[Rfam]
RNA sequence: CUCUCAUCGAGAGCGGUGGAGGGACGGGCCCCGAGAAGCCGCGGCAACCGGCGAGAGUUCGGCUCUCGUGCCAGGUGCCAAAUCCCGCGGAGGAGGCUCCGGAAGAUGAGGC
Numbered sequence: 001c002u003c004u005c006a007u008c009g010a011g012a013g014c015g016g017u018g019g020a021g022g023g024a025c026g027g028g029c030c031c032c033g034a035g036a037a038g039c040c041g042c043g044g045c046a047a048c049c050g051g052c053g054a055g056a057g058u059u060c061g062g063c064u065c066u067c068g069u070g071c072c073a074g075g076u077g078c079c080a081a082a083u084c085c086c087g088c089g090g091a092g093g094a095g096g097c098u099c100c101g102g103a104a105g106a107u108g109a110g111g112c
Base pairs, nucleotide, nucleotide: 002111003110004109005108006107007106008105013042014041015040016039017038021031022030023029025087026086027085028084043079044078045077046076048075049074050072051071052070053069083104088101089100090099091098092097
This 112-nucleotide RNA from Rubrobacter marinus belongs to the Rfam family "SAM riboswitch aptamer (S box leader)". Rfam describes the family as follows. The SAM riboswitch is found upstream of a number of genes which code for proteins involved in methionine or cysteine biosynthesis in Gram-positive bacteria. The SAM riboswitch acts at the level of transcription termination control. The predicted structure consists of a complex stem-loop region followed by a single stem loop terminator region. An alternative and mutually exclusive form involves bases in the 3' segment of helix 1 with those in the 5' region of helix 5 to form a structure termed the anti-terminator form. NCBI's taxonomy places the organism under Bacteria, Actinomycetota, Rubrobacteria, Rubrobacteraceae, Rubrobacter.